[Rfam]
RNA sequence: CGCGUUUUUCGCUCAGGCGGAGCUCGACCGCCGUUUCAAGUCCUGAAGGCCUUCAUUGAUCAGCAUCGCGACACCUUCGGGGUCGAGCCGAUCUGCAAGGUCUUGCGGAUUGCCCCG
Numbered sequence: 001c002g003c004g005u006u007u008u009u010c011g012c013u014c015a016g017g018c019g020g021a022g023c024u025c026g027a028c029c030g031c032c033g034u035u036u037c038a039a040g041u042c043c044u045g046a047a048g049g050c051c052u053u054c055a056u057u058g059a060u061c062a063g064c065a066u067c068g069c070g071a072c073a074c075c076u077u078c079g080g081g082g083u084c085g086a087g088c089c090g091a092u093c094u095g096c097a098a099g100g101u102c103u104u105g106c107g108g109a110u111u112g113c114c115c116c117g
Stems, first nucleotide, its partner, number of pairs: 016032005078117005089112002092109007